[Rfam]
RNA sequence: GGUAUUCCUUAUCUAUCUAAUACGUUGAGUUAUCUGGAACCUGUCCCAUUGCGCUCUUGCGUAAGAACGCAAUAAGACAGGUUCUGCGUUUAGUUGCCGCGCGUUAAAUAGCG
Dot-bracket structure: ((((.................((((..........((((((((((..(((((..((((....))))..)))))..)))))))))))))).....))))...............
Numbered sequence: 001g002g003u004a005u006u007c008c009u010u011a012u013c014u015a016u017c018u019a020a021u022a023c024g025u026u027g028a029g030u031u032a033u034c035u036g037g038a039a040c041c042u043g044u045c046c047c048a049u050u051g052c053g054c055u056c057u058u059g060c061g062u063a064a065g066a067a068c069g070c071a072a073u074a075a076g077a078c079a080g081g082u083u084c085u086g087c088g089u090u091u092a093g094u095u096g097c098c099g100c101g102c103g104u105u106a107a108a109u110a111g112c113g
Stems, first nucleotide, its partner, number of pairs: 001098004022089004036085010048073005055066004